[Rfam]
RNA sequence: UUGCAUGUAGAAAUGUCUUCCCCUUGUUCCUUUAGGGGCAGGAAUACAUAUAUAACAUGCCACAUUAAAAAAGGAGUUCUCAGGGCUGCCAACCUUACAGUAGAGAUUAAGUGGCAGUAUGUUUCUCAUACAUAA
Numbered sequence: 001u002u003g004c005a006u007g008u009a010g011a012a013a014u015g016u017c018u019u020c021c022c023c024u025u026g027u028u029c030c031u032u033u034a035g036g037g038g039c040a041g042g043a044a045u046a047c048a049u050a051u052a053u054a055a056c057a058u059g060c061c062a063c064a065u066u067a068a069a070a071a072a073g074g075a076g077u078u079c080u081c082a083g084g085g086c087u088g089c090c091a092a093c094c095u096u097a098c099a100g101u102a103g104a105g106a107u108u109a110a111g112u113g114g115c116a117g118u119a120u121g122u123u124u125c126u127c128a129u130a131c132a133u134a135a
Base pairs, nucleotide, nucleotide: 003060004059005058006057007056008055016042017041018040020038021037022036023035074127075126076125085115086114089111091108092107094105095104096103
This 135-nucleotide sequence from Castor canadensis belongs to the Rfam family "Small nucleolar RNA U109". A search with the family's covariance model found it, with a score of 130 bits. The family's RNA type in Rfam is H/ACA-box small nucleolar RNA. On this family, see Richard et al., EMBO J 2003: "A common sequence motif determines the Cajal body-specific localization of box H/ACA scaRNAs". Rfam links the family to the GO terms nucleolus and RNA processing. Pairs were carried over by alignment from the consensus structure, which was predicted with WAR.